[Rfam]
RNA sequence: CAAUUCUUUCGGGGCAGGGUGAAAUUCCCAACCGGCGGUAAUCUUUAUAAGAAAGCCCGCGACCUGUACGGUAAUUUUUACCGUAUGGCUGAUUCAGUUCAAGUCUGAAGCCGACAGUUAAAGUCUGGAUGGGAGAGAGAAUAA
Numbered sequence: 001c002a003a004u005u006c007u008u009u010c011g012g013g014g015c016a017g018g019g020u021g022a023a024a025u026u027c028c029c030a031a032c033c034g035g036c037g038g039u040a041a042u043c044u045u046u047a048u049a050a051g052a053a054a055g056c057c058c059g060c061g062a063c064c065u066g067u068a069c070g071g072u073a074a075u076u077u078u079u080a081c082c083g084u085a086u087g088g089c090u091g092a093u094u095c096a097g098u099u100c101a102a103g104u105c106u107g108a109a110g111c112c113g114a115c116a117g118u119u120a121a122a123g124u125c126u127g128g129a130u131g132g133g134a135g136a137g138a139g140a141a142u143a144a
Stems, first nucleotide, its partner, number of pairs: 003142008017029003031124002033113002035060004055111002064088004093109005115127003
A member of the RNA family "FMN riboswitch aptamer (RFN element)" from Jeotgalicoccus saudimassiliensis, 144 nucleotides long. The RFN element is a highly conserved domain that is found frequently in the 5'-untranslated regions of prokaryotic mRNAs that encode for flavin mononucleotide (FMN) biosynthesis and transport proteins. It scores 119 bits against the family's covariance model.